[Rfam]
RNA: MIR535 microRNA precursor family
Organism: Gossypium raimondii
RNA sequence: AUUAUCAAUUGACAACGAGAGAGAGCACGUUUGUAGCCAUUCAUACAUGGUCAUGGAUGCAUACAAGCGUGCUCUCUAUCGGUGUCAUGUGAUU
Numbered sequence: 001a002u003u004a005u006c007a008a009u010u011g012a013c014a015a016c017g018a019g020a021g022a023g024a025g026c027a028c029g030u031u032u033g034u035a036g037c038c039a040u041u042c043a044u045a046c047a048u049g050g051u052c053a054u055g056g057a058u059g060c061a062u063a064c065a066a067g068c069g070u071g072c073u074c075u076c077u078a079u080c081g082g083u084g085u086c087a088u089g090u091g092a093u094u
Stems, first nucleotide, its partner, number of pairs: 010087005016081002020077002023074001025072010